[Rfam]
RNA sequence: CUAGCCCCUUAAUAAUAAUAUAAUGUAUAUAUGUGCUCUCUUUAAAUUUAACAAAUUGCUGGAAAACCCUAUAAAUAGGAUAAUCAGCAGGGAACUAAUAGACGGAUAAAUAUCUUUUAGUGCCUUCAGAGACUAAAUGUUAAAAAUUAAUACGUUUAUAACCUAUUAAUUAAGAUAUAGUCCAACUAAUAUAGAAAUAUAUUA
Numbered sequence: 001c002u003a004g005c006c007c008c009u010u011a012a013u014a015a016u017a018a019u020a021u022a023a024u025g026u027a028u029a030u031a032u033g034u035g036c037u038c039u040c041u042u043u044a045a046a047u048u049u050a051a052c053a054a055a056u057u058g059c060u061g062g063a064a065a066a067c068c069c070u071a072u073a074a075a076u077a078g079g080a081u082a083a084u085c086a087g088c089a090g091g092g093a094a095c096u097a098a099u100a101g102a103c104g105g106a107u108a109a110a111u112a113u114c115u116u117u118u119a120g121u122g123c124c125u126u127c128a129g130a131g132a133c134u135a136a137a138u139g140u141u142a143a144a145a146a147u148u149a150a151u152a153c154g155u156u157u158a159u160a161a162c163c164u165a166u167u168a169a170u171u172a173a174g175a176u177a178u179a180g181u182c183c184a185a186c187u188a189a190u191a192u193a194g195a196a197a198u199a200u201a202u203u204a
Stems, first nucleotide, its partner, number of pairs: 014019001047144004052139002057089006068079004090125002095120004102116001104114001129183001131182005147169006154162002189202005
The family of this 204-nucleotide sequence from Fusarium mundagurra is "Group I catalytic intron".
It scores 70 bits against the family's covariance model.
Its family is annotated with Group I intron splicing in the Gene Ontology.
Taxonomically the source falls in Fusarium fujikuroi species complex (Eukaryota, Dikarya, leotiomyceta, Fusarium).